[Rfam]
RNA sequence: CAGGUUCCGGUUCACGUCCGUUUCCCUAUCCAUUCGGGCGACCCGGCGACC
Numbered sequence: 001c002a003g004g005u006u007c008c009g010g011u012u013c014a015c016g017u018c019c020g021u022u023u024c025c026c027u028a029u030c031c032a033u034u035c036g037g038g039c040g041a042c043c044c045g046g047c048g049a050c051c
Stems, first nucleotide, its partner, number of pairs: 003051003007046004015040006023032001

Rfam assigns this 51-nucleotide sequence from Mycobacterium fragae to the family "L31-Actinobacteria ribosomal protein leader". Taxonomically the source falls in Mycobacterium (Bacteria, Actinomycetota, Mycobacteriales, Mycobacteriaceae). It is annotated as a cis-regulatory leader.